[Rfam]
RNA sequence: UGCGCGGUGCCGAAUGCGGGCCGCGCCUCAAAUCACUUGGAGAAACCUCAGGAGAUUUUGCAAUGGCU
Numbered sequence: 001u002g003c004g005c006g007g008u009g010c011c012g013a014a015u016g017c018g019g020g021c022c023g024c025g026c027c028u029c030a031a032a033u034c035a036c037u038u039g040g041a042g043a044a045a046c047c048u049c050a051g052g053a054g055a056u057u058u059u060g061c062a063a064u065g066g067c068u
Stems, first nucleotide, its partner, number of pairs: 002026007010019003031056001036054003042049002
RNA: Repression of heat shock gene expression (ROSE) element